[Rfam]
RNA sequence: AUCUUAUAAGCGCUGAAUUCAGUUGAAACGGGGGAACCAAUUUUCAGGGGUGAAUCCAUCACGUUAUGGUAGGGUUAAUCUUCGACCCGAAUCCGUCAGCUAACCUCGUAAGCGUGGAAGAAAUAAUCC
Numbered sequence: 001a002u003c004u005u006a007u008a009a010g011c012g013c014u015g016a017a018u019u020c021a022g023u024u025g026a027a028a029c030g031g032g033g034g035a036a037c038c039a040a041u042u043u044u045c046a047g048g049g050g051u052g053a054a055u056c057c058a059u060c061a062c063g064u065u066a067u068g069g070u071a072g073g074g075u076u077a078a079u080c081u082u083c084g085a086c087c088c089g090a091a092u093c094c095g096u097c098a099g100c101u102a103a104c105c106u107c108g109u110a111a112g113c114g115u116g117g118a119a120g121a122a123a124u125a126a127u128c129c
Stems, first nucleotide, its partner, number of pairs: 011114004018027003028109006038047001048094003056069004072088004
This 129-nucleotide sequence from Desulforamulus ruminis belongs to the Rfam family "c-di-AMP riboswitch aptamer (ydaO/yuaA leader)". Taxonomically the source falls in Desulforamulus ruminis (Bacteria, Bacillati, Clostridia, Peptococcaceae). Its family is annotated with cyclic-di-AMP binding and regulation of gene expression in the Gene Ontology. A search with the family's covariance model found it, with a score of 108 bits. Rfam describes the family as follows. This family represents a conserved RNA structure found upstream of the ydaO and yuaA genes in Bacillus subtilis and related genes in other bacteria. Pairs were carried over by alignment from the consensus structure.